Shown here is a 76-nucleotide RNA from Alligator sinensis, a member of the family "Mammalian CPEB3 ribozyme". Pairs were carried over by alignment from the consensus structure, which is taken from published work. The organism belongs to Alligator, within Eukaryota. It scores 35 bits against the family's covariance model.
[Rfam]
RNA sequence: GUUGUAAAUUAGAGGCCAUAUUAGAAACACUCGCGGUGUGGCUGUGUCAUAUUCCAGCUAAUCUGAAAAUUCUGCU
Numbered sequence: 001g002u003u004g005u006a007a008a009u010u011a012g013a014g015g016c017c018a019u020a021u022u023a024g025a026a027a028c029a030c031u032c033g034c035g036g037u038g039u040g041g042c043u044g045u046g047u048c049a050u051a052u053u054c055c056a057g058c059u060a061a062u063c064u065g066a067a068a069a070u071u072c073u074g075c076u
Stems, first nucleotide, its partner, number of pairs: 014043004020076001022074005027039003048065002051062003